[Rfam]
RNA sequence: AUAGCAGUUCCAAAGUGCUCAUAGUGCAGGUAGUUUGUACUCUUAAUCUACUGUAAUGUGGGCACUUACAGUACUGCCAG
Numbered sequence: 001a002u003a004g005c006a007g008u009u010c011c012a013a014a015g016u017g018c019u020c021a022u023a024g025u026g027c028a029g030g031u032a033g034u035u036u037g038u039a040c041u042c043u044u045a046a047u048c049u050a051c052u053g054u055a056a057u058g059u060g061g062g063c064a065c066u067u068a069c070a071g072u073a074c075u076g077c078c079a080g
Stems, first nucleotide, its partner, number of pairs: 004077004010071001013067011025055003029052005

This 80-nucleotide RNA from Hymenochirus boettgeri belongs to the Rfam family "mir-17 microRNA precursor family". Gene Ontology terms of the family: miRNA-mediated post-transcriptional gene silencing and RISC complex. The base pairs follow the family's consensus structure, which was predicted with RNAalifold. This family represents the microRNA (miRNA) precursor mir-17, family, which includes mir-20, mir-91, and mir-103. miRNAs are transcribed as ~70nt precursors (modelled here) and subsequently processed by the Dicer enzyme to give a ~22nt product. In this case the mature sequence comes from the 3' arm of the precursor. The extents of the hairpin precursors are not generally known and are estimated based on hairpin prediction. A search with the family's covariance model found it, with a score of 73 bits. NCBI's taxonomy places the organism under Eukaryota, Eumetazoa, Euteleostomi, Pipinae, Hymenochirus. The literature on the family includes a 2025 paper in J Mol Biol by Liu et al., "Structural Features Within Precursor microRNA-20a Regulate Dicer-TRBP Processing". Rfam 15.1 lists 4,687 matches to the family in 648 species.